[Rfam]
RNA sequence: UUUGUCCUGGGUCUUUCAGCACCUCAAGCACAGCACAGCUGCUCAGCUGUGUCUGUGACAUCAGGGCCAAGAGCAAGUGUCUAUUUCUACGUUCAGCGUUCAGAAGCCAGUGAGCGUUAAGGAUGUUUAUAGCCUGACAUAU
Dot-bracket structure: ...(((((((...................((((...................))))....)))))))...........(.(......((..((...((((((........))))))...))..))......).)........
Numbered sequence: 001u002u003u004g005u006c007c008u009g010g011g012u013c014u015u016u017c018a019g020c021a022c023c024u025c026a027a028g029c030a031c032a033g034c035a036c037a038g039c040u041g042c043u044c045a046g047c048u049g050u051g052u053c054u055g056u057g058a059c060a061u062c063a064g065g066g067c068c069a070a071g072a073g074c075a076a077g078u079g080u081c082u083a084u085u086u087c088u089a090c091g092u093u094c095a096g097c098g099u100u101c102a103g104a105a106g107c108c109a110g111u112g113a114g115c116g117u118u119a120a121g122g123a124u125g126u127u128u129a130u131a132g133c134c135u136g137a138c139a140u141a142u
Stems, first nucleotide, its partner, number of pairs: 004067007030056004079134001081132001088125002092121002097116006
About this RNA
This 142-nucleotide RNA sequence from Microtus ochrogaster belongs to the Rfam family "Small nucleolar RNA SNORA43". Rfam describes the family as follows. ACA43 is a member of the H/ACA class of snoRNA that guide the sites of modification of uridines to pseudouridines. Its Rfam clan is "SNORA17 clan". A search with the family's covariance model found it, with a score of 100 bits. Its family is annotated with nucleolus and RNA processing in the Gene Ontology.